[Rfam]
RNA sequence: GAUAUUGCGUUGAAGGAAAAUAGUAGACGAUUAUGACUUUAGAGAGAAAGUUCAAAGGUGAAAUACUUUUAGUCCUCUAAGAAUCGAACCCAUUCCGGAGCUUUCAGUCAGAAUUUAGUAUGUCUGAACGAUAGUAUCGUUAAAACUUAUGAGAGGAUUUAUAAAAAUUAAAUCCAUUAGAGUGGUACCACGGAUUUCAAACCUUCGUCUCUUCC
Number, nucleotide and partner (000 for none) at each position: 001g000002a000003u000004a000005u000006u000007g101008c100009g000010u000011u000012g000013a000014a000015g096016g095017a094018a093019a000020a000021u000022a000023g000024u000025a000026g085027a084028c000029g000030a000031u080032u000033a000034u000035g074036a073037c072038u000039u000040u000041a000042g000043a000044g000045a000046g070047a069048a068049a067050g066051u065052u000053c000054a000055a000056a000057g000058g000059u000060g000061a000062a000063a000064u000065a051066c050067u049068u048069u047070u046071a000072g037073u036074c035075c000076u000077c000078u000079a000080a031081g000082a000083a000084u027085c026086g000087a000088a000089c000090c000091c000092a000093u018094u017095c016096c015097g000098g000099a000100g008101c007102u000103u000104u127105c126106a125107g124108u000109c122110a121111g000112a000113a000114u000115u000116u000117a000118g000119u000120a000121u110122g109123u000124c107125u106126g105127a104128a000129c139130g138131a137132u000133a000134g000135u000136a000137u131138c130139g129140u000141u000142a000143a000144a000145a000146c000147u000148u000149a000150u000151g000152a000153g000154a000155g000156g174157a173158u172159u171160u170161a169162u000163a000164a000165a000166a000167a000168u000169u161170a160171a159172a158173u157174c156175c000176a000177u000178u000179a212180g211181a210182g209183u000184g000185g000186u000187a000188c000189c000190a208191c207192g206193g205194a204195u000196u000197u000198c000199a000200a000201a000202c000203c000204u194205u193206c192207g191208u190209c182210u181211c180212u179213u000214c000215c000